[Rfam]
RNA sequence: AAUGAUGGAGGCACAGGCAUUUCCUGGGGAUUAAUGACCAGCUGGGAGGAACUAGUGGCCAUUGGCUCUGCCUCCCAGCCAGUCGUUAAUUUCAAAUGUCUUUUGCUGAGGUCAUU
Numbered sequence: 001a002a003u004g005a006u007g008g009a010g011g012c013a014c015a016g017g018c019a020u021u022u023c024c025u026g027g028g029g030a031u032u033a034a035u036g037a038c039c040a041g042c043u044g045g046g047a048g049g050a051a052c053u054a055g056u057g058g059c060c061a062u063u064g065g066c067u068c069u070g071c072c073u074c075c076c077a078g079c080c081a082g083u084c085g086u087u088a089a090u091u092u093c094a095a096a097u098g099u100c101u102u103u104u105g106c107u108g109a110g111g112u113c114a115u116u
Stems, first nucleotide, its partner, number of pairs: 001116006010107004015101007028092009038082001041079009053070003057067004
RNA: mir-763 microRNA precursor family
Organism: Vombatus ursinus